[Rfam]
RNA sequence: CGUGAUCUACCCUGUAGAUCCGGGCUUUCGUAAAAAACAAAUCGAAAGCUCGUCUCUACAGGUAUAUCACGG
Numbered sequence: 001c002g003u004g005a006u007c008u009a010c011c012c013u014g015u016a017g018a019u020c021c022g023g024g025c026u027u028u029c030g031u032a033a034a035a036a037a038c039a040a041a042u043c044g045a046a047a048g049c050u051c052g053u054c055u056c057u058a059c060a061g062g063u064a065u066a067u068c069a070c071g072g
Stems, first nucleotide, its partner, number of pairs: 002070005010062002016057003021052010
mir-10 microRNA precursor family: a 72-nucleotide RNA from Bombyx mori. The family has 36 seed sequences and 3,853 matches in Rfam 15.1. The family's consensus secondary structure was predicted with PFOLD. On this family, see Ambros, Cell 2001: "microRNAs: tiny regulators with great potential". The organism belongs to Bombyx, within Eukaryota. The match comes from Rfam's covariance-model search (56 bits).